[Rfam]
RNA sequence: AAGUCAUAUGUGAGAGUUGGAGGAAAUUGAACCAGUUGCACGCUGCUAUAAUGUGGUGCAGUUGGGUUCAAUUUCCUCCGACAUCUCAUCUCCGGCUU
Numbered sequence: 001a002a003g004u005c006a007u008a009u010g011u012g013a014g015a016g017u018u019g020g021a022g023g024a025a026a027u028u029g030a031a032c033c034a035g036u037u038g039c040a041c042g043c044u045g046c047u048a049u050a051a052u053g054u055g056g057u058g059c060a061g062u063u064g065g066g067u068u069c070a071a072u073u074u075c076c077u078c079c080g081a082c083a084u085c086u087c088a089u090c091u092c093c094g095g096c097u098u
Stems, first nucleotide, its partner, number of pairs: 004095002008091001011088004016082006023075008032066002

Description
Shown here is a 98-nucleotide RNA sequence from Papaver nudicaule, a member of the family "MIR2275 microRNA precursor family". Gene Ontology terms of the family: RISC complex and miRNA-mediated post-transcriptional gene silencing.